[Rfam]
RNA sequence: GGAAGCGCACGGGGCCUGGUGGCCCUCGCGGUCUUCAAAACCGUUGCCCGGCCGCACCAGGCGGUCGGGGGUGGGUUCGAUUCCCAUGCGCUUCC
Numbered sequence: 001g002g003a004a005g006c007g008c009a010c011g012g013g014g015c016c017u018g019g020u021g022g023c024c025c026u027c028g029c030g031g032u033c034u035u036c037a038a039a040a041c042c043g044u045u046g047c048c049c050g051g052c053c054g055c056a057c058c059a060g061g062c063g064g065u066c067g068g069g070g071g072u073g074g075g076u077u078c079g080a081u082u083c084c085c086a087u088g089c090g091c092u093u094c095c
Stems, first nucleotide, its partner, number of pairs: 001095009011026006028044005047069007072086004
RNA: Selenocysteine transfer RNA
Organism: Thermoanaerobaculum aquaticum